[Rfam]
RNA: mir-2807 microRNA precursor family
Organism: Bombyx mori
RNA sequence: UUAACUCAAAUUUGUAUGCAGUUGGAACAGCGUUCCUAGCGGCAAACGUAGGCAACUGUUUCAACUCCAUACAAAUUUGAGUUA
Numbered sequence: 001u002u003a004a005c006u007c008a009a010a011u012u013u014g015u016a017u018g019c020a021g022u023u024g025g026a027a028c029a030g031c032g033u034u035c036c037u038a039g040c041g042g043c044a045a046a047c048g049u050a051g052g053c054a055a056c057u058g059u060u061u062c063a064a065c066u067c068c069a070u071a072c073a074a075a076u077u078u079g080a081g082u083u084a
Stems, first nucleotide, its partner, number of pairs: 008078009018068001020066010034052002039047001